Shown here is a 157-nucleotide RNA sequence from Vigna angularis, a member of the family "U12 minor spliceosomal RNA". A reference for the family is Tarn and Steitz (1997), "Pre-mRNA splicing: the discovery of a new spliceosome doubles the challenge", Trends Biochem Sci. It is annotated as a spliceosomal small nuclear RNA.
Nucleotides: 157
Base pairs, nucleotide, nucleotide: 004023005022006021007020008019032053033052034051035050036049037048038047039046055072056071057070058069086157087156088155089154090153094148095147096146097145098144100142103138105136106135107134114129115128116127117126
Number, partner (000 for none) and nucleotide at each position: 001000u002000u003000g004023c005022c006021u007020u008019a009000a010000a011000c012000u013000a014000a015000u016000g017000a018000g019008u020007a021006a022005g023004g024000a025000a026000a027000a028000c029000a030000a031000a032053g033052c034051a035050a036049g037048c038047a039046g040000u041000g042000g043000g044000a045000g046039c047038u048037g049036c050035u051034u052033g053032c054000a055072g056071c057070a058069c059000u060000c061000a062000u063000u064000c065000u066000g067000a068000u069058g070057u071056g072055c073000a074000a075000g076000a077000a078000u079000u080000u081000u082000u083000g084000a085000a086157g087156g088155g089154g090153u091000u092000a093000u094148a095147g096146g097145c098144u099000g100142g101000u102000c103138u104000u105136g106135a107134g108000c109000a110000g111000a112000c113000g114129c115128u116127g117126c118000u119000u120000a121000c122000u123000u124000a125000u126117g127116c128115a129114g130000a131000a132000c133000u134107c135106u136105c137000a138103a139000a140000g141000g142100c143000g144098g145097g146096c147095c148094u149000c150000c151000c152000a153090a154089u155088c156087c157086c